[Rfam]
The family of this 102-nucleotide RNA from Alteribacter keqinensis is "Purine riboswitch aptamer".

RNA sequence: ACUAAUGUCACAAAUGUAGUUCGUAUAACGACGGGAAUAAGGCCCGUAAGUCUCUACCAGAUCACCGUAAAUGAUCUGACUACGAACGAUCGAGUCGGAAAG
Numbered sequence: 001a002c003u004a005a006u007g008u009c010a011c012a013a014a015u016g017u018a019g020u021u022c023g024u025a026u027a028a029c030g031a032c033g034g035g036a037a038u039a040a041g042g043c044c045c046g047u048a049a050g051u052c053u054c055u056a057c058c059a060g061a062u063c064a065c066c067g068u069a070a071a072u073g074a075u076c077u078g079a080c081u082a083c084g085a086a087c088g089a090u091c092g093a094g095u096c097g098g099a100a101a102g
Base pairs, nucleotide, nucleotide: 019087020086021085022084023083024082025081031047032046033045034044035043058078059077060076061075062074063073064072